[Rfam]
RNA sequence: ACACUCCGAGCGCUGAAUCCGUACAGGAACGGGGGAACCAAUUUUUUUGGGGUGAAUCCGGUGUCUUCACCGGUAGGGUCACUCUCACGGACCCGAAUCCGUCAGCUAACCUCGUAAGCGUGCUGAGAGGGAAGUG
Numbered sequence: 001a002c003a004c005u006c007c008g009a010g011c012g013c014u015g016a017a018u019c020c021g022u023a024c025a026g027g028a029a030c031g032g033g034g035g036a037a038c039c040a041a042u043u044u045u046u047u048u049g050g051g052g053u054g055a056a057u058c059c060g061g062u063g064u065c066u067u068c069a070c071c072g073g074u075a076g077g078g079u080c081a082c083u084c085u086c087a088c089g090g091a092c093c094c095g096a097a098u099c100c101g102u103c104a105g106c107u108a109a110c111c112u113c114g115u116a117a118g119c120g121u122g123c124u125g126a127g128a129g130g131g132a133a134g135u136g
Stems, first nucleotide, its partner, number of pairs: 011120004018028003029115006039049002050100003058073004076094004